Rfam assigns this 67-nucleotide RNA from Marmota monax to the family "Small nucleolar RNA SNORD42".
Rfam 15.1 lists 848 matches to the family in 572 species.
Pairs were carried over by alignment from the consensus structure, which was predicted with PFOLD.
The match comes from Rfam's covariance-model search (76 bits).
The organism belongs to Marmota, within Eukaryota.
Rfam's curators write: snoRNA U42 is found in intron 3 of the ribosomal protein L23a (RPL23a) gene in humans and is also present in mice.
It is annotated as a C/D-box small nucleolar RNA.
RNA sequence: GUGCAUAUGAUGGAAAAAUCGUGAUCUCCUGAGAUUUGUGAAGUUUUCAAAGGAACCACUGAUGCAC
Numbered sequence: 001g002u003g004c005a006u007a008u009g010a011u012g013g014a015a016a017a018a019u020c021g022u023g024a025u026c027u028c029c030u031g032a033g034a035u036u037u038g039u040g041a042a043g044u045u046u047u048c049a050a051a052g053g054a055a056c057c058a059c060u061g062a063u064g065c066a067c
Stems, first nucleotide, its partner, number of pairs: 001067005